[Rfam]
RNA sequence: AUGAGAACAGAGGGAGAGUCCGUAGUCGGAGUCUAUUCCGAUGAAGCGGCGCCGAAGGAGCAAGCCUAGUGUGAAUCUCUCAGGCAAAAGUACUUCUGUUUGACG
Numbered sequence: 001a002u003g004a005g006a007a008c009a010g011a012g013g014g015a016g017a018g019u020c021c022g023u024a025g026u027c028g029g030a031g032u033c034u035a036u037u038c039c040g041a042u043g044a045a046g047c048g049g050c051g052c053c054g055a056a057g058g059a060g061c062a063a064g065c066c067u068a069g070u071g072u073g074a075a076u077c078u079c080u081c082a083g084g085c086a087a088a089a090g091u092a093c094u095u096c097u098g099u100u101u102g103a104c105g
Stems, first nucleotide, its partner, number of pairs: 006100008020049004051085003054081002058079003064072002
Rfam assigns this 105-nucleotide RNA from Geomicrobium sp. JCM 19039 to the family "Glycine riboswitch aptamer". The source organism's lineage runs through Bacteria, Bacillati, Bacillota, Caryophanales and Geomicrobium.